[Rfam]
RNA sequence: GUGCUGUGAUGCUUUUAUCAACACAUCAUUCUGACCCAACUGUGGGGAAAAAUCUCAUGUAACUGAGCACA
Number, nucleotide and partner (000 for none) at each position: 001g070002u069003g068004c067005u000006g000007u000008g000009a000010u000011g000012c000013u000014u000015u000016u000017a000018u000019c000020a000021a000022c000023a000024c000025a000026u000027c000028a000029u000030u000031c000032u000033g000034a000035c000036c000037c000038a000039a000040c000041u000042g000043u000044g000045g000046g000047g000048a000049a000050a000051a000052a000053u000054c000055u000056c000057a000058u000059g000060u000061a000062a000063c000064u000065g000066a000067g004068c003069a002070c001071a000